[Rfam]
Nucleotides: 399
Stems, first nucleotide, its partner, number of pairs: 001362003009359001011244004018237003135231003139226005147219006153197002157193008168179001170177001205212002249290006259283001263279004301358003304351001306350002309334003314329006338345002364391003373384004
Number, partner (000 for none) and nucleotide at each position: 001362c002361a003360g004000u005000u006000a007000a008000a009359a010000a011244g012243c013242u014241c015000g016000u017000a018237g019236c020235c021000g022000u023000u024000g025000u026000u027000a028000g029000c030000c031000c032000c033000g034000c035000g036000u037000g038000u039000c040000a041000c042000u043000u044000u045000g046000a047000g048000a049000a050000a051000a052000u053000c054000g055000g056000a057000g058000u059000g060000u061000u062000c063000a064000u065000u066000a067000c068000a069000g070000g071000g072000a073000a074000a075000c076000c077000g078000c079000u080000g081000c082000a083000c084000a085000g086000u087000a088000c089000a090000g091000c092000a093000a094000a095000g096000a097000a098000u099000g100000a101000c102000a103000u104000u105000g106000c107000u108000c109000c110000c111000c112000g113000g114000c115000g116000a117000c118000g119000g120000g121000g122000g123000g124000u125000a126000c127000g128000g129000a130000g131000u132000a133000u134000a135231u136230g137229g138000c139226g140225g141224c142223g143222c144000g145000g146000g147219a148218c149217u150216g151215a152214u153197a154196g155000u156000a157193u158192u159191u160190g161189g162188u163187g164186g165000g166000g167000a168179c169000a170177g171000g172000u173000g174000a175000a176000a177170u178000a179168g180000g181000a182000u183000g184000a185000u186164c187163c188162a189161c190160c191159a192158a193157g194000g195000a196154c197153u198000u199000u200000c201000a202000a203000c204000a205212g206211c207000g208000a209000a210000g211206g212205c213000a214152g215151u216150c217149g218148g219147u220000a221000a222143g223142c224141g225140c226139c227000g228000u229137c230136c231135a232000g233000u234000u235020g236019g237018u238000c239000a240000a241014g242013a243012g244011c245000g246000a247000a248000a249290g250289u251288g252287u253286g254285a255000g256000g257000a258000u259283a260000g261000a262000c263279g264278a265277u266276g267000a268000u269000u270000a271000g272000a273000a274000a275000c276266c277265g278264u279263u280000u281000u282000a283259u284000u285254u286253c287252a288251c289250g290249c291000c292000u293000u294000a295000a296000a297000c298000g299000a300000u301358a302357c303356c304351a305000u306350c307349u308000c309334a310333g311332a312000a313000g314329c315328g316327g317326g318325c319324u320000c321000a322000g323000a324319a325318g326317u327316c328315c329314g330000c331000a332311u333310c334309u335000c336000a337000a338345g339344g340000g341000a342000a343000a344339c345338c346000g347000c348000a349307a350306g351304u352000u353000u354000c355000g356303g357302g358301u359009u360003c361002u362001g363000g364391g365390g366389g367000a368000a369000g370000u371000a372000u373384g374383a375382u376381u377000g378000c379000a380000a381376g382375a383374u384373u385000g386000a387000a388000a389366c390365u391364u392000g393000a394000a395000g396000g397000u398000a399000u